[Rfam]
RNA sequence: ACUCGACGAACUGAUUCAUACGGCAGGAGCGGGGGACCCAGGUAAGUCGCCGGACCGGAACGGCACACGUCGCACCGGAACGGCUAGGGGUGAAGCCGUGCCUUUCCCGAGGCACGGCCGGGCACCUCCCCGCCCGAACCCGACAGCUCACCUCGCAGGCGUCGGAGAGGACUU
Numbered sequence: 001a002c003u004c005g006a007c008g009a010a011c012u013g014a015u016u017c018a019u020a021c022g023g024c025a026g027g028a029g030c031g032g033g034g035g036a037c038c039c040a041g042g043u044a045a046g047u048c049g050c051c052g053g054a055c056c057g058g059a060a061c062g063g064c065a066c067a068c069g070u071c072g073c074a075c076c077g078g079a080a081c082g083g084c085u086a087g088g089g090g091u092g093a094a095g096c097c098g099u100g101c102c103u104u105u106c107c108c109g110a111g112g113c114a115c116g117g118c119c120g121g122g123c124a125c126c127u128c129c130c131c132g133c134c135c136g137a138a139c140c141c142g143a144c145a146g147c148u149c150a151c152c153u154c155g156c157a158g159g160c161g162u163c164g165g166a167g168a169g170g171a172c173u174u
Stems, first nucleotide, its partner, number of pairs: 011159002016028002029156006039087001088141003096117007120135004

Background
c-di-AMP riboswitch aptamer (ydaO/yuaA leader): a 174-nucleotide RNA from Streptomyces roseochromogenus. The match comes from Rfam's covariance-model search (61 bits). The organism belongs to Streptomyces roseochromogenus subsp. oscitans, within Bacteria. This family represents a conserved RNA structure found upstream of the ydaO and yuaA genes in Bacillus subtilis and related genes in other bacteria.